[Rfam]
RNA sequence: UAGGCGGUAUUCUUAGAAGCUGCACUAGAAAAUGUGUUAAAUUCUAAUUUAGAUUUUAGAAUGCACACUCUGCUCAGAGCCUAAAGGACCGAGACAGAAGG
Numbered sequence: 001u002a003g004g005c006g007g008u009a010u011u012c013u014u015a016g017a018a019g020c021u022g023c024a025c026u027a028g029a030a031a032a033u034g035u036g037u038u039a040a041a042u043u044c045u046a047a048u049u050u051a052g053a054u055u056u057u058a059g060a061a062u063g064c065a066c067a068c069u070c071u072g073c074u075c076a077g078a079g080c081c082u083a084a085a086g087g088a089c090c091g092a093g094a095c096a097g098a099a100g101g
Stems, first nucleotide, its partner, number of pairs: 001027003004023005010018002070097003073093003077089001080087002
The family of this 101-nucleotide RNA sequence from Pristimantibacillus lignocellulolyticus is "pan motif". The family's consensus secondary structure is taken from published work. NCBI's taxonomy places the organism under Bacteria, Bacillota, Bacilli, Paenibacillaceae, Pristimantibacillus (SeqCode). It scores 55 bits against the family's covariance model. Rfam classes the family as a cis-regulatory element.